This 600-nucleotide part of an RNA from Aliiroseovarius pelagivivens belongs to the Rfam family "Bacterial small subunit ribosomal RNA". Rfam links the family to the GO terms structural constituent of ribosome and ribosome. The base pairs follow the family's consensus structure, which is taken from published work. On this family, see Yusupov et al., Science 2001: "Crystal structure of the ribosome at 5.5 A resolution".
RNA sequence: UGACGGGGGCCCGCACAAGCGGUGGAGCAUGUGGUUUAAUUCGAAGCAACGCGCAGAACCUUACCAACCCUUGACAUACUUGUCGCGAUUUCCAGAGAUGGAUUUCUUCAGUUCGGCUGGACAAGAUACAGGUGCUGCAUGGCUGUCGUCAGCUCGUGUCGUGAGAUGUUCGGUUAAGUCCGGCAACGAGCGCAACCCACGUCUUUAGUUGCCAGCAGUUCGGCUGGGCACUCUAAAGAAACUGCCGGUGAUAAGCCGGAGGAAGGUGUGGAUGACGUCAAGUCCUCAUGGCCCUUACGGGUUGGGCUACACACGUGCUACAAUGGCAUCUACAGUGGGUUAAUCCCCAAAAGAUGUCUCAGUUCGGAUUGGGGUCUGCAACUCGACCCCAUGAAGUCGGAAUCGCUAGUAAUCGCGUAACAGCAUGACGCGGUGAAUACGUUCCCGGGCCUUGUACACACCGCCCGUCACACCAUGGGAGUUGGUUCUACCUGACGGCCGUGCGCUAACCUCUUUGAGGAGGCAGCGGACCACGGUAGGAUCAGCGACUGGGGUGAAGUCGUAACAAGGUAGCCGUAGGGGAACCUGCGGCUGGAUCAC
Numbered sequence: 001u002g003a004c005g006g007g008g009g010c011c012c013g014c015a016c017a018a019g020c021g022g023u024g025g026a027g028c029a030u031g032u033g034g035u036u037u038a039a040u041u042c043g044a045a046g047c048a049a050c051g052c053g054c055a056g057a058a059c060c061u062u063a064c065c066a067a068c069c070c071u072u073g074a075c076a077u078a079c080u081u082g083u084c085g086c087g088a089u090u091u092c093c094a095g096a097g098a099u100g101g102a103u104u105u106c107u108u109c110a111g112u113u114c115g116g117c118u119g120g121a122c123a124a125g126a127u128a129c130a131g132g133u134g135c136u137g138c139a140u141g142g143c144u145g146u147c148g149u150c151a152g153c154u155c156g157u158g159u160c161g162u163g164a165g166a167u168g169u170u171c172g173g174u175u176a177a178g179u180c181c182g183g184c185a186a187c188g189a190g191c192g193c194a195a196c197c198c199a200c201g202u203c204u205u206u207a208g209u210u211g212c213c214a215g216c217a218g219u220u221c222g223g224c225u226g227g228g229c230a231c232u233c234u235a236a237a238g239a240a241a242c243u244g245c246c247g248g249u250g251a252u253a254a255g256c257c258g259g260a261g262g263a264a265g266g267u268g269u270g271g272a273u274g275a276c277g278u279c280a281a282g283u284c285c286u287c288a289u290g291g292c293c294c295u296u297a298c299g300g301g302u303u304g305g306g307c308u309a310c311a312c313a314c315g316u317g318c319u320a321c322a323a324u325g326g327c328a329u330c331u332a333c334a335g336u337g338g339g340u341u342a343a344u345c346c347c348c349a350a351a352a353g354a355u356g357u358c359u360c361a362g363u364u365c366g367g368a369u370u371g372g373g374g375u376c377u378g379c380a381a382c383u384c385g386a387c388c389c390c391a392u393g394a395a396g397u398c399g400g401a402a403u404c405g406c407u408a409g410u411a412a413u414c415g416c417g418u419a420a421c422a423g424c425a426u427g428a429c430g431c432g433g434u435g436a437a438u439a440c441g442u443u444c445c446c447g448g449g450c451c452u453u454g455u456a457c458a459c460a461c462c463g464c465c466c467g468u469c470a471c472a473c474c475a476u477g478g479g480a481g482u483u484g485g486u487u488c489u490a491c492c493u494g495a496c497g498g499c500c501g502u503g504c505g506c507u508a509a510c511c512u513c514u515u516u517g518a519g520g521a522g523g524c525a526g527c528g529g530a531c532c533a534c535g536g537u538a539g540g541a542u543c544a545g546c547g548a549c550u551g552g553g554g555u556g557a558a559g560u561c562g563u564a565a566c567a568a569g570g571u572a573g574c575c576g577u578a579g580g581g582g583a584a585c586c587u588g589c590g591g592c593u594g595g596a597u598c599a600c
Stems, first nucleotide, its partner, number of pairs: 001458002003455003007452007015442002019406005024321001026319008034310002040055001042053002064305007077128002079125005088105001091102004108120004131294002134292004140288002142283003145279001147277002152191006158167003170183004197271004202239007212228002216226003242262002245259005325358007337347003365396001370391007412434007461569001463566001466562002471556004476551003481546012497531001499529004505524003510520002571594010